[Rfam]
RNA sequence: GGCUCCCGCCCCUCGUGAUCGUCUUCUCACCUUUCACAGGGCAGGGCGGGAGAACGAGAAAGGGGCGGCCCCGGUGUGGAUGUGACACACCGGGACCGCCC
Numbered sequence: 001g002g003c004u005c006c007c008g009c010c011c012c013u014c015g016u017g018a019u020c021g022u023c024u025u026c027u028c029a030c031c032u033u034u035c036a037c038a039g040g041g042c043a044g045g046g047c048g049g050g051a052g053a054a055c056g057a058g059a060a061a062g063g064g065g066c067g068g069c070c071c072c073g074g075u076g077u078g079g080a081u082g083u084g085a086c087a088c089a090c091c092g093g094g095a096c097c098g099c100c101c
Base pairs, nucleotide, nucleotide: 001055005050006049007048008047009046010045011044015037016036017035018034021031063101064100065099066098067097068096070094071093072092073091074090075089076088077087078086
Background:
The family of this 101-nucleotide sequence from Streptomycetaceae bacterium MP113-05 is "sodF sRNA". The base pairs follow the family's consensus structure. On this family, see Kim et al., Nucleic Acids Res 2014: "Inverse regulation of Fe- and Ni-containing SOD genes by a Fur family regulator Nur through small RNA processed from 3'UTR of the sodF mRNA".